[Rfam]
RNA sequence: AGCCUCCUGGUGCUUAUCACAGGUUGUUAUUACACUGACUGUAUAAAGAGAAGGGAAAGUAAACCUAACCCCAUAUAUACCUCAGCUCAGGACCUGUGCCUGAUCUGAAUUGUGAAUGGGAAGGCAUGG
Numbered sequence: 001a002g003c004c005u006c007c008u009g010g011u012g013c014u015u016a017u018c019a020c021a022g023g024u025u026g027u028u029a030u031u032a033c034a035c036u037g038a039c040u041g042u043a044u045a046a047a048g049a050g051a052a053g054g055g056a057a058a059g060u061a062a063a064c065c066u067a068a069c070c071c072c073a074u075a076u077a078u079a080c081c082u083c084a085g086c087u088c089a090g091g092a093c094c095u096g097u098g099c100c101u102g103a104u105c106u107g108a109a110u111u112g113u114g115a116a117u118g119g120g121a122a123g124g125c126a127u128g129g
Stems, first nucleotide, its partner, number of pairs: 003054003007050002020041003026033002070120005083107003087103005
The family of this 129-nucleotide RNA from Castor canadensis is "Small nucleolar RNA SNORA51". Rfam links the family to the GO terms RNA processing and nucleolus. Rfam classes the family as an H/ACA-box small nucleolar RNA. The match comes from Rfam's covariance-model search (101 bits). The organism belongs to Castor, within Eukaryota. The family has 9 seed sequences and 2,121 matches in Rfam 15.1.